[Rfam]
RNA: Bacillaceae-1 RNA
RNA sequence: CGCAGGGGAUCUUCUGCUAAAAUCGCCCACGUCCUGUGAGCAACACAGAAGUCACCAGAUCCUGUGGA
Numbered sequence: 001c002g003c004a005g006g007g008g009a010u011c012u013u014c015u016g017c018u019a020a021a022a023u024c025g026c027c028c029a030c031g032u033c034c035u036g037u038g039a040g041c042a043a044c045a046c047a048g049a050a051g052u053c054a055c056c057a058g059a060u061c062c063u064g065u066g067g068a
Base pairs, nucleotide, nucleotide: 011051012050013049014048015047016046026040028038029037030036055067056066057065